Overview
Rfam assigns this 45-nucleotide sequence from Marivirga tractuosa to the family "Acido-Lenti-1 RNA". The source organism's lineage runs through Bacteria, Cytophagales, Marivirgaceae, Marivirga and Marivirga tractuosa.
RNA sequence: CACAGGGCUUCACCCUGUGUUAUAAUAUGACGUCCUUUCAGGACU
Numbered sequence: 001c002a003c004a005g006g007g008c009u010u011c012a013c014c015c016u017g018u019g020u021u022a023u024a025a026u027a028u029g030a031c032g033u034c035c036u037u038u039c040a041g042g043a044c045u
Base pairs, nucleotide, nucleotide: 001019002018003017004016005015006014007013032044033043034042035041036040
It scores 39 bits against the family's covariance model.